[Rfam]
RNA sequence: AAGGCGGGAACCGAAAAGCCUGUAAUAGAGUAGGGG
Numbered sequence: 001a002a003g004g005c006g007g008g009a010a011c012c013g014a015a016a017a018g019c020c021u022g023u024a025a026u027a028g029a030g031u032a033g034g035g036g
Base pairs, nucleotide, nucleotide: 002021003020004019005018011034012033

Shown here is a 36-nucleotide sequence, a member of the family "DUF805b RNA". Pairs were carried over by alignment from the consensus structure, which is taken from published work.